The family of this 71-nucleotide RNA sequence from Trypanosoma brucei is "Trypanosomatid snoRNA TB10Cs1H1". The sequence is in the family's curated seed alignment. Its family is annotated with nucleolus and RNA processing in the Gene Ontology. The family's consensus secondary structure was predicted with WAR. A reference for the family is Liang et al. (2005), "A genome-wide analysis of C/D and H/ACA-like small nucleolar RNAs in Trypanosoma brucei reveals a trypanosome-specific pattern of rRNA modification", RNA. By type it is an H/ACA-box small nucleolar RNA.
RNA sequence: CAUCCCCUUUAAUAGCGAGUGGUCUUUGUGUGCAUCUCCGCAAACCACUCGUCUACACCGGGGGAAAGAUA
Number, nucleotide and partner (000 for none) at each position: 001c000002a000003u065004c064005c063006c062007c061008u060009u000010u000011a000012a000013u000014a000015g052016c051017g050018a049019g048020u047021g046022g045023u044024c000025u000026u000027u000028g000029u000030g000031u000032g000033c000034a000035u000036c000037u000038c000039c000040g000041c000042a000043a000044a023045c022046c021047a020048c019049u018050c017051g016052u015053c000054u000055a000056c000057a000058c000059c000060g008061g007062g006063g005064g004065a003066a000067a000068g000069a000070u000071a000